RNA sequence: UUCCGGCCACAACGGCUUCCUGGCGUGGCGCGGCAAAAUGAAUGGAGCA
Numbered sequence: 001u002u003c004c005g006g007c008c009a010c011a012a013c014g015g016c017u018u019c020c021u022g023g024c025g026u027g028g029c030g031c032g033g034c035a036a037a038a039u040g041a042a043u044g045g046a047g048c049a
Base pairs, nucleotide, nucleotide: 004032005031006029007028008027009026010025013022014021015048016047017046019045020044
The record is a 49-nucleotide RNA sequence from Salibaculum griseiflavum, which matches "SAM/SAH riboswitch aptamer" in Rfam. The base pairs follow the family's consensus structure, which is taken from published work. Gene Ontology terms of the family: S-adenosylmethionine metabolic process and regulation of gene expression.